Rfam assigns this 102-nucleotide RNA sequence from Phenylobacterium zucineum to the family "Glycine riboswitch aptamer". A search with the family's covariance model found it, with a score of 58 bits. Taxonomically the source falls in Phenylobacterium zucineum (Bacteria, Pseudomonadati, Alphaproteobacteria, Phenylobacterium).

RNA sequence: CCGACUCUCGCGGGAGAGAUCUUCCAAGGCCUCCGGGCCGCGGAGGGAGCCGAAGGCGCAACCGCCCCGGAAACGCUCAGGCAAAAGGACCGCGCGGGCUGA
Numbered sequence: 001c002c003g004a005c006u007c008u009c010g011c012g013g014g015a016g017a018g019a020u021c022u023u024c025c026a027a028g029g030c031c032u033c034c035g036g037g038c039c040g041c042g043g044a045g046g047g048a049g050c051c052g053a054a055g056g057c058g059c060a061a062c063c064g065c066c067c068c069g070g071a072a073a074c075g076c077u078c079a080g081g082c083a084a085a086a087g088g089a090c091c092g093c094g095c096g097g098g099c100u101g102a
Stems, first nucleotide, its partner, number of pairs: 006097002009094005020047006049082003052078002056076003062070002